[Rfam]
RNA sequence: AAAGUCCUUGCUGGGUAAGGUCUAGCCAACCACCCAUAUCGAGUGUUGCGUCGAAACUGGUAACAGUAAGGCGAAGCGUACACAGAGAACUAUAUAGGCCACGGGGAGAACCGUAACUCCUGAAGCAUAUUCAGCCCCGUUAGCGCGUGUCCGAAAGGACAAAGAGCAGAUGGCAACGUGUUUAACGUCACGGAAGCCCAAGCAAAGAAACCGAUCUAUUGGCAAGGUUUCGGAGGGUCUGUCGGGGUCAGAGAACG
Numbered sequence: 001a002a003a004g005u006c007c008u009u010g011c012u013g014g015g016u017a018a019g020g021u022c023u024a025g026c027c028a029a030c031c032a033c034c035c036a037u038a039u040c041g042a043g044u045g046u047u048g049c050g051u052c053g054a055a056a057c058u059g060g061u062a063a064c065a066g067u068a069a070g071g072c073g074a075a076g077c078g079u080a081c082a083c084a085g086a087g088a089a090c091u092a093u094a095u096a097g098g099c100c101a102c103g104g105g106g107a108g109a110a111c112c113g114u115a116a117c118u119c120c121u122g123a124a125g126c127a128u129a130u131u132c133a134g135c136c137c138c139g140u141u142a143g144c145g146c147g148u149g150u151c152c153g154a155a156a157g158g159a160c161a162a163a164g165a166g167c168a169g170a171u172g173g174c175a176a177c178g179u180g181u182u183u184a185a186c187g188u189c190a191c192g193g194a195a196g197c198c199c200a201a202g203c204a205a206a207g208a209a210a211c212c213g214a215u216c217u218a219u220u221g222g223c224a225a226g227g228u229u230u231c232g233g234a235g236g237g238u239c240u241g242u243c244g245g246g247g248u249c250a251g252a253g254a255a256c257g
Base pairs, nucleotide, nucleotide: 012036013035014034015033019031020030021029023225025223026222039086040085043083044082045081046080047078048077049073050072051071052070056067057066058065059064131251134248135247136246137245138244139243166242167241168240169239170238171237172198173197174196177192178191179190180189203236207231208230209229210228211227212226
A member of the RNA family "Group II catalytic intron D1-D4-6" from Desulfosporosinus sp. I2, 257 nucleotides long. The pairing is the family consensus, mapped onto this sequence. The source organism's lineage runs through Bacteria, Bacillati, Clostridia, Desulfitobacteriaceae and Desulfosporosinus. Group II introns are found in rRNA, tRNA and mRNA of organelles in fungi, plants and protists, and also in mRNA in bacteria.